[Rfam]
RNA sequence: UAGAAUAAUGUAGGUAAGGGAAGUCGGCAAAACUGAUCCGUAACUUCGGGAUAAGGAUUGGCUCUGAAGAAUGAGUCGGUCGGGCUGUGGUCUGAAGCGAGUUGUGCGCUGCACCGGGACUGAGCACGGUGAAGGAGCAAUCCGACGCCGAGUUCGGACCAGCGUCAGUGUGUACUCGCGGAAAGCCUCAGCUACGCCUCCUUGAGCGGCGGCCUGUCAAAGGGUCGUCGUCUCUUGGUAGGAUCGUUUCGGCCGGCAAAAAACAUUCGAAUCAGAACUGGCACGGACCACGGGAAUCCGACUGUCUAAUUAAAACAAAGCAUUGCGAUGGCCGUCGAACGGUGUUGACGCAAUGUGAUUUCUGCCCAGUGGUAUGAAUGUCAAAGUGAAGAAAUUCAACCAAGCGCUACUAAACGGCGGGAGUAACUAUGACUCUCUUAAGGUAGCCAAAUGCCUCGUCAUCUAAUUAGUGACGCGCAUGAAUGGAUCAACGAGAUUCCCACUGUCCCUAUCUACUAUCUAGCGAAACCACAGCCAAGGGAACGGGCUUGGCAAA
Numbered sequence: 001u002a003g004a005a006u007a008a009u010g011u012a013g014g015u016a017a018g019g020g021a022a023g024u025c026g027g028c029a030a031a032a033c034u035g036a037u038c039c040g041u042a043a044c045u046u047c048g049g050g051a052u053a054a055g056g057a058u059u060g061g062c063u064c065u066g067a068a069g070a071a072u073g074a075g076u077c078g079g080u081c082g083g084g085c086u087g088u089g090g091u092c093u094g095a096a097g098c099g100a101g102u103u104g105u106g107c108g109c110u111g112c113a114c115c116g117g118g119a120c121u122g123a124g125c126a127c128g129g130u131g132a133a134g135g136a137g138c139a140a141u142c143c144g145a146c147g148c149c150g151a152g153u154u155c156g157g158a159c160c161a162g163c164g165u166c167a168g169u170g171u172g173u174a175c176u177c178g179c180g181g182a183a184a185g186c187c188u189c190a191g192c193u194a195c196g197c198c199u200c201c202u203u204g205a206g207c208g209g210c211g212g213c214c215u216g217u218c219a220a221a222g223g224g225u226c227g228u229c230g231u232c233u234c235u236u237g238g239u240a241g242g243a244u245c246g247u248u249u250c251g252g253c254c255g256g257c258a259a260a261a262a263a264c265a266u267u268c269g270a271a272u273c274a275g276a277a278c279u280g281g282c283a284c285g286g287a288c289c290a291c292g293g294g295a296a297u298c299c300g301a302c303u304g305u306c307u308a309a310u311u312a313a314a315a316c317a318a319a320g321c322a323u324u325g326c327g328a329u330g331g332c333c334g335u336c337g338a339a340c341g342g343u344g345u346u347g348a349c350g351c352a353a354u355g356u357g358a359u360u361u362c363u364g365c366c367c368a369g370u371g372g373u374a375u376g377a378a379u380g381u382c383a384a385a386g387u388g389a390a391g392a393a394a395u396u397c398a399a400c401c402a403a404g405c406g407c408u409a410c411u412a413a414a415c416g417g418c419g420g421g422a423g424u425a426a427c428u429a430u431g432a433c434u435c436u437c438u439u440a441a442g443g444u445a446g447c448c449a450a451a452u453g454c455c456u457c458g459u460c461a462u463c464u465a466a467u468u469a470g471u472g473a474c475g476c477g478c479a480u481g482a483a484u485g486g487a488u489c490a491a492c493g494a495g496a497u498u499c500c501c502a503c504u505g506u507c508c509c510u511a512u513c514u515a516c517u518a519u520c521u522a523g524c525g526a527a528a529c530c531a532c533a534g535c536c537a538a539g540g541g542a543a544c545g546g547g548c549u550u551g552g553c554a555a556a
Stems, first nucleotide, its partner, number of pairs: 001522004010516007018508003035059005044049001060279002063276005069268005075257009084192003089187003097179004103174009115162001117160002120157006127150004280284001292501007299493002303317003320356008331343004360487003364418003369415002371411004376407001379406003387398004419437006438442001458474005535552005
RNA: Eukaryotic large subunit ribosomal RNA, nucleotides 2229 to 2784
Organism: Medioppia subpectinata